[Rfam]
RNA: small nucleolar RNA snoR28
RNA sequence: AUUAUAAUGAUGAAAACCUUGAGGAAGUGCCGUCUGAGUUUUUAUGUUGAAGAAAAACCAAAUUUCUGAAUAUAAUUA
Numbered sequence: 001a002u003u004a005u006a007a008u009g010a011u012g013a014a015a016a017c018c019u020u021g022a023g024g025a026a027g028u029g030c031c032g033u034c035u036g037a038g039u040u041u042u043u044a045u046g047u048u049g050a051a052g053a054a055a056a057a058c059c060a061a062a063u064u065u066c067u068g069a070a071u072a073u074a075a076u077u078a
Stems, first nucleotide, its partner, number of pairs: 005078004